[Rfam]
RNA sequence: GGUCCCGUAGCUCAGUUGGAUAGAGCGCCAGCCUCCGAAGCUGGAGGUCGCAGGUUCGAAUCCUGCCGGGACCG
Numbered sequence: 001g002g003u004c005c006c007g008u009a010g011c012u013c014a015g016u017u018g019g020a021u022a023g024a025g026c027g028c029c030a031g032c033c034u035c036c037g038a039a040g041c042u043g044g045a046g047g048u049c050g051c052a053g054g055u056u057c058g059a060a061u062c063c064u065g066c067c068g069g070g071a072c073c074g
Stems, first nucleotide, its partner, number of pairs: 001073007010026004028044005050066005
A member of the RNA family "tRNA" from Dichotomicrobium thermohalophilum, 74 nucleotides long. It is annotated as a transfer RNA.